[Rfam]
RNA sequence: CCGUCCAGCGUCCUAGGCGGGGUGCCACGGGACCUCCCUCGUGUCUGGCGGUGGGAUUCCGUGGCCGUGCUUUCCUGGUGGCCCCGCC
Numbered sequence: 001c002c003g004u005c006c007a008g009c010g011u012c013c014u015a016g017g018c019g020g021g022g023u024g025c026c027a028c029g030g031g032a033c034c035u036c037c038c039u040c041g042u043g044u045c046u047g048g049c050g051g052u053g054g055g056a057u058u059c060c061g062u063g064g065c066c067g068u069g070c071u072u073u074c075c076u077g078g079u080g081g082c083c084c085c086g087c088c
Stems, first nucleotide, its partner, number of pairs: 005086001008083001011081002013078005019071002022068002024065009033051002036048002